[Rfam]
RNA sequence: GGGCAAAUUACAGGGCAAUUCUCCUUUGGCAGAACAGAAGCUAUUUCAAGGCCUUUUGCAUGCGAUAUCUCUCUUCUGCCAAAGGAGAACUGCCCUGUUAUUUCACA
Numbered sequence: 001g002g003g004c005a006a007a008u009u010a011c012a013g014g015g016c017a018a019u020u021c022u023c024c025u026u027u028g029g030c031a032g033a034a035c036a037g038a039a040g041c042u043a044u045u046u047c048a049a050g051g052c053c054u055u056u057u058g059c060a061u062g063c064g065a066u067a068u069c070u071c072u073c074u075u076c077u078g079c080c081a082a083a084g085g086a087g088a089a090c091u092g093c094c095c096u097g098u099u100a101u102u103u104c105a106c107a
Base pairs, nucleotide, nucleotide: 005103006102007101008100011097012096013095014094015093016092017091019089021087022086023085024084027081028080029079030078031077032076033075034074